[Rfam]
Rfam assigns this 58-nucleotide RNA sequence from Flexivirga caeni to the family "msiK RNA". The match comes from Rfam's covariance-model search (58 bits). The base pairs follow the family's consensus structure, which is taken from published work. Lineage of the source: Bacteria > Actinomycetota > Micrococcales > Dermacoccaceae > Flexivirga.
RNA sequence: CGCCGCACCCAUUCACAACGGAUCGUCCGGCACGUUCCUGCCGGUGAAGGAGUUGCAC
Numbered sequence: 001c002g003c004c005g006c007a008c009c010c011a012u013u014c015a016c017a018a019c020g021g022a023u024c025g026u027c028c029g030g031c032a033c034g035u036u037c038c039u040g041c042c043g044g045u046g047a048a049g050g051a052g053u054u055g056c057a058c
Stems, first nucleotide, its partner, number of pairs: 009050002012048004027044006